[Rfam]
RNA sequence: AGAGGUCAAAAGCUUGAGACCAUCACACAAGUGCUAAUGGCACAGCCAUAUCAGAUUCCAAUGAAUCUGCAAAUUCUGCU
Numbered sequence: 001a002g003a004g005g006u007c008a009a010a011a012g013c014u015u016g017a018g019a020c021c022a023u024c025a026c027a028c029a030a031g032u033g034c035u036a037a038u039g040g041c042a043c044a045g046c047c048a049u050a051u052c053a054g055a056u057u058c059c060a061a062u063g064a065a066u067c068u069g070c071a072a073a074u075u076c077u078g079c080u
Stems, first nucleotide, its partner, number of pairs: 015048001018047001020045001026078002029075002031043003052069007